RNA sequence: GGCCCUAGCGGGAGAAGCUAUUGCGAUUAUGGUUACCAGCAAUGGUUCAUAACGACAUAAGCGUAUAGCUUUUCCCCUAGGUUC
Dot-bracket structure: ...((((..(((.((..((((.....(((((........................)))))....))))..)).))).))))...